About this RNA: Rfam assigns this 117-nucleotide RNA sequence from Fukomys damarensis to the family "Small nucleolar RNA SNORA40". A reference for the family is Ofengand and Bakin (1997), "Mapping to nucleotide resolution of pseudouridine residues in large subunit ribosomal RNAs from representative eukaryotes, prokaryotes, archaebacteria, mitochondria and chloroplasts", J Mol Biol. Its family is annotated with nucleolus and RNA processing in the Gene Ontology. The snoRNA ACA 40 belongs to the H/ACA family of snoRNAs and guides the pseudouridylation of 28S rRNA subunit at position U4565. NB This family has a high threshold value to exclude a large number of closely related sequences that do not appear to have conserved H and ACA boxes, and may be pseudogenes. Lineage of the source: Eukaryota > Metazoa > Euarchontoglires > Rodentia > Fukomys. Pairs were carried over by alignment from the consensus structure, which was predicted with RNAalifold.
RNA sequence: UGUCUUGUUUUGUCUAAUUGUAGAUUGACUUAUAGAAAGGUACAAAAAAUAAAUCCUCUUUUGCAACCCCAAAUUCAUUGUUUAGCAUGAGCUUUGAUACAUAUAAGAUGGAAUAUU
Numbered sequence: 001u002g003u004c005u006u007g008u009u010u011u012g013u014c015u016a017a018u019u020g021u022a023g024a025u026u027g028a029c030u031u032a033u034a035g036a037a038a039g040g041u042a043c044a045a046a047a048a049a050u051a052a053a054u055c056c057u058c059u060u061u062u063g064c065a066a067c068c069c070c071a072a073a074u075u076c077a078u079u080g081u082u083u084a085g086c087a088u089g090a091g092c093u094u095u096g097a098u099a100c101a102u103a104u105a106a107g108a109u110g111g112a113a114u115a116u117u
Stems, first nucleotide, its partner, number of pairs: 001042006009034001012029003018022001053114002056111002059108005069096001071094002074091005